[Rfam]
Rfam assigns this 134-nucleotide sequence from Chrysochloris asiatica to the family "Small nucleolar RNA SNORA41".
The family's consensus secondary structure was predicted with PFOLD.
By type it is an H/ACA-box small nucleolar RNA.
Gene Ontology terms of the family: RNA processing and nucleolus.
Rfam describes the family as follows. ACA41 is a member of the H/ACA class of snoRNA that guide the sites of modification of uridines to pseudouridines.
The literature on the family includes a 2001 paper in EMBO J by Huttenhofer et al., "RNomics: an experimental approach that identifies 201 candidates for novel, small, non-messenger RNAs in mouse".
The match comes from Rfam's covariance-model search (133 bits).
Lineage of the source: Eukaryota > Gnathostomata > Afrosoricida > Chrysochloridae > Chrysochloris.

RNA sequence: UUCCACAACUACUGGUCUGCAGCUGUUUCUUUGGUAGUAGUUGCGGUAUCCCUCUGUGGGACAGAAACUGUUACAUACUUAAAUACCUCUUUCUUAGCAGAACAGAAAGGGGGCAUAAUGUGUGACAGAUAUAA
Numbered sequence: 001u002u003c004c005a006c007a008a009c010u011a012c013u014g015g016u017c018u019g020c021a022g023c024u025g026u027u028u029c030u031u032u033g034g035u036a037g038u039a040g041u042u043g044c045g046g047u048a049u050c051c052c053u054c055u056g057u058g059g060g061a062c063a064g065a066a067a068c069u070g071u072u073a074c075a076u077a078c079u080u081a082a083a084u085a086c087c088u089c090u091u092u093c094u095u096a097g098c099a100g101a102a103c104a105g106a107a108a109g110g111g112g113g114c115a116u117a118a119u120g121u122g123u124g125a126c127a128g129a130u131a132u133a134a
Stems, first nucleotide, its partner, number of pairs: 003059004017046009073123005086113003089109006